[Rfam]
RNA sequence: UUACAAGUUCAAGGCCACAGCAGAAAUGCUUGUAGUGUGGCUGUGUCAGAUUCCACCAAAUCUGCAAAUUCUGCU
Dot-bracket structure: ............[[[[..((((((((((.......)))]]]]....((((((......))))))....)))))))
Record summary:
Mammalian CPEB3 ribozyme: a 75-nucleotide RNA from Alligator sinensis. The literature on the family includes a 2004 paper in Nature by Teixeira et al., "Autocatalytic RNA cleavage in the human beta-globin pre-mRNA promotes transcription termination". Lineage of the source: Eukaryota > Metazoa > Sarcopterygii > Alligatorinae > Alligator. The match comes from Rfam's covariance-model search (36 bits). Rfam links the family to the GO term RNA nuclease activity.